[Rfam]
RNA sequence: GUAAAAAUUAAAUAUUAUUCUCGUAUAAUAUUGGGGAUAUGGCCCGAAAGUUUCUACCAAGCUACCGUAAAUGGCUUGACUACGAGGUGUGUAUAUAAAUAU
Numbered sequence: 001g002u003a004a005a006a007a008u009u010a011a012a013u014a015u016u017a018u019u020c021u022c023g024u025a026u027a028a029u030a031u032u033g034g035g036g037a038u039a040u041g042g043c044c045c046g047a048a049a050g051u052u053u054c055u056a057c058c059a060a061g062c063u064a065c066c067g068u069a070a071a072u073g074g075c076u077u078g079a080c081u082a083c084g085a086g087g088u089g090u091g092u093a094u095a096u097a098a099a100u101a102u
Stems, first nucleotide, its partner, number of pairs: 019087007029049001031047005058078007